[Rfam]
This 124-nucleotide sequence from Novosphingobium sp. MD-1 belongs to the Rfam family "Y RNA-like". The organism belongs to Novosphingobium, within Bacteria. In Deinococcus radiodurans Rsr is tethered via Y RNA to the exoribonuclease PNPase and channels single-stranded RNA into the PNPase cavity. Rsr and Y RNA enhance degradation of structured RNAs by PNPase. The literature on the family includes a 2013 paper in Cell by Chen et al., "An RNA degradation machine sculpted by Ro autoantigen and noncoding RNA". The base pairs follow the family's consensus structure, which is taken from published work.
RNA sequence: ACGGUGAAUGCCGGAAGGACUACAUUGAUAAUGUCGGUGUCGCGGGUUCGAUCCCCGCCUGUCCCUCGGGGCGGUAGCUCAGUUGGUAGAGCACGAAUGUCUUUCCAAACCUGGUCGCCGUGAC
Numbered sequence: 001a002c003g004g005u006g007a008a009u010g011c012c013g014g015a016a017g018g019a020c021u022a023c024a025u026u027g028a029u030a031a032u033g034u035c036g037g038u039g040u041c042g043c044g045g046g047u048u049c050g051a052u053c054c055c056c057g058c059c060u061g062u063c064c065c066u067c068g069g070g071g072c073g074g075u076a077g078c079u080c081a082g083u084u085g086g087u088a089g090a091g092c093a094c095g096a097a098u099g100u101c102u103u104u105c106c107a108a109a110c111c112u113g114g115u116c117g118c119c120g121u122g123a124c
Stems, first nucleotide, its partner, number of pairs: 002120006013106007023095001036094001042058005049086001059074006077092004